[Rfam]
RNA sequence: AGGUGAGGAGUUUUUUGAGGACUGUCUAACCUGAGAAUGGUGAAUCAUGAAGGUCAAUCUCAGGUCCGUCAGCCCACGAGAAGCUGCCUCCAG
Dot-bracket structure: ....(((.((((((((..((.(((.(..((((((((.((...............)).))))))))..).))).))..))))))))..)))...